[Rfam]
RNA sequence: CCCGGUCCUCGGUAGUGGCUCGCGGAGAGCGGUCGGCCCCGUGCCGGCCCUCCGCGGACCUCGAUCGAAGACCGUC
Numbered sequence: 001c002c003c004g005g006u007c008c009u010c011g012g013u014a015g016u017g018g019c020u021c022g023c024g025g026a027g028a029g030c031g032g033u034c035g036g037c038c039c040c041g042u043g044c045c046g047g048c049c050c051u052c053c054g055c056g057g058a059c060c061u062c063g064a065u066c067g068a069a070g071a072c073c074g075u076c
Stems, first nucleotide, its partner, number of pairs: 003074005009068005017060002020057008029048001
RNA: Actino-pnp RNA
Organism: Actinotalea ferrariae